[Rfam]
RNA sequence: AAAAUCUGCUCACUCAAUGGUAUCAGAUUUAGAGCUCUAUUAUAGAGGUCAGUUUAUUUUUCCUGCGCAAGCAAACACAUUACGAGGUCUGUAAAAGCCUUAGUAGAAUUAACGAAAGGGCAAGACAGC
Numbered sequence: 001a002a003a004a005u006c007u008g009c010u011c012a013c014u015c016a017a018u019g020g021u022a023u024c025a026g027a028u029u030u031a032g033a034g035c036u037c038u039a040u041u042a043u044a045g046a047g048g049u050c051a052g053u054u055u056a057u058u059u060u061u062c063c064u065g066c067g068c069a070a071g072c073a074a075a076c077a078c079a080u081u082a083c084g085a086g087g088u089c090u091g092u093a094a095a096a097g098c099c100u101u102a103g104u105a106g107a108a109u110u111a112a113c114g115a116a117a118g119g120g121c122a123a124g125a126c127a128g129c
Stems, first nucleotide, its partner, number of pairs: 001030002004028005010022001012021002064073003087129001089128004097121004106113001

The record is a 129-nucleotide sequence, which matches "Bacteriophage Diversity-Generating Retroelement RNA" in Rfam. The sequence is in the family's curated seed alignment. By type it is a small RNA.